[Rfam]
RNA: Small nucleolar RNA SNORD24
RNA sequence: GGCCAAUGAUGCAUAAAGUAUUUGCUACUCUUGAAUAUAGCUGAUGAUAAAUAUCACCAAAAUUUCUGAGGCC
Numbered sequence: 001g002g003c004c005a006a007u008g009a010u011g012c013a014u015a016a017a018g019u020a021u022u023u024g025c026u027a028c029u030c031u032u033g034a035a036u037a038u039a040g041c042u043g044a045u046g047a048u049a050a051a052u053a054u055c056a057c058c059a060a061a062a063u064u065u066c067u068g069a070g071g072c073c
Base pairs, nucleotide, nucleotide: 001073002072003071004070